[Rfam]
RNA sequence: CAAACGGCUCUUUUAAGAGCCACCCCAAAUUUUCUUAUAAAGAGCUG
Numbered sequence: 001c002a003a004a005c006g007g008c009u010c011u012u013u014u015a016a017g018a019g020c021c022a023c024c025c026c027a028a029a030u031u032u033u034c035u036u037a038u039a040a041a042g043a044g045c046u047g
Base pairs, nucleotide, nucleotide: 006021007020008019009018010017011016